[Rfam]
RNA sequence: AUGCGCCGGUCAGGAGAGAGUGCCCGCCCGGCCGCAAUGGUCACAGGCAGCGGCACCGCCGAAGGCGCAGGGUUCGCCCCGAACGCUCAGGCAAAAGGACUGGCACCGCCUG
Numbered sequence: 001a002u003g004c005g006c007c008g009g010u011c012a013g014g015a016g017a018g019a020g021u022g023c024c025c026g027c028c029c030g031g032c033c034g035c036a037a038u039g040g041u042c043a044c045a046g047g048c049a050g051c052g053g054c055a056c057c058g059c060c061g062a063a064g065g066c067g068c069a070g071g072g073u074u075c076g077c078c079c080c081g082a083a084c085g086c087u088c089a090g091g092c093a094a095a096a097g098g099a100c101u102g103g104c105a106c107c108g109c110c111u112g
Base pairs, nucleotide, nucleotide: 009104010103011102012101013100020056021055022054023053058092059091060090061088062087065086066085067084071080072079
RNA: Glycine riboswitch aptamer
Organism: Delftia acidovorans